Background:
Shown here is a 102-nucleotide RNA sequence from Gordonia insulae, a member of the family "mraW RNA".
[Rfam]
RNA sequence: GGGAUCGGGUGGGUCGAGGCCUCGGCCCGGAACGACCCUGGCGUACUUCCCCAACGCCAGGUGCGUGAUCGGGCCGAGACCCCGCCUCAUCGGACAUCCCCU
Numbered sequence: 001g002g003g004a005u006c007g008g009g010u011g012g013g014u015c016g017a018g019g020c021c022u023c024g025g026c027c028c029g030g031a032a033c034g035a036c037c038c039u040g041g042c043g044u045a046c047u048u049c050c051c052c053a054a055c056g057c058c059a060g061g062u063g064c065g066u067g068a069u070c071g072g073g074c075c076g077a078g079a080c081c082c083c084g085c086c087u088c089a090u091c092g093g094a095c096a097u098c099c100c101c102u
Stems, first nucleotide, its partner, number of pairs: 010089004015084002018081002021078010032066003037061008
The family's RNA type in Rfam is cis-regulatory element. NCBI's taxonomy places the organism under Bacteria, Actinomycetota, Actinomycetes, Gordoniaceae, Gordonia.